[Rfam]
RNA sequence: GCAUCGGCGGGAGGCAUCGACGCACGGUCGCCCAACCUGGUCGUCUGGACCGUGUCGAGCCAAUGACGAGACCGACUCGCCGUCGC
Numbered sequence: 001g002c003a004u005c006g007g008c009g010g011g012a013g014g015c016a017u018c019g020a021c022g023c024a025c026g027g028u029c030g031c032c033c034a035a036c037c038u039g040g041u042c043g044u045c046u047g048g049a050c051c052g053u054g055u056c057g058a059g060c061c062a063a064u065g066a067c068g069a070g071a072c073c074g075a076c077u078c079g080c081c082g083u084c085g086c
Base pairs, nucleotide, nucleotide: 001086002085005082006081007080008079009078010077011076013061014060015059022055023054024053025052026051027050028049029048039073040072041069042068043067044066045065
The family of this 86-nucleotide RNA sequence is "c-di-GMP-II-GAG riboswitch aptamer". The base pairs follow the family's consensus structure, which is taken from published work. Its Rfam clan is "c-di-GMP_II riboswitch clan". The literature on the family includes a 2017 paper in Proc Natl Acad Sci U S A by Weinberg et al., "Bioinformatic analysis of riboswitch structures uncovers variant classes with altered ligand specificity". Rfam links the family to the GO terms cyclic-di-GMP binding and regulation of gene expression. Rfam's curators put it in the seed alignment.